RNA: BsrC
Organism: Enterococcus florum
RNA sequence: UCUCAUUUAAACGACGAAUUCCCAAACCUCUAAUCCGUCCUUGUAACCCUCAAGUUACGCCAGUGUGAAUAAAUUUCCUCAAAACUCA
Number, nucleotide and partner (000 for none) at each position: 001u000002c000003u000004c000005a000006u000007u000008u000009a000010a000011a000012c000013g000014a000015c000016g000017a000018a000019u000020u000021c000022c000023c000024a000025a000026a000027c000028c000029u000030c000031u000032a000033a000034u000035c000036c067037g066038u000039c000040c063041u062042u059043g058044u057045a056046a055047c054048c000049c000050u000051c000052a000053a000054g047055u046056u045057a044058c043059g042060c000061c000062a041063g040064u000065g000066u037067g036068a000069a000070u000071a000072a000073a000074u000075u000076u000077c000078c000079u000080c000081a000082a000083a000084a000085c000086u000087c000088a000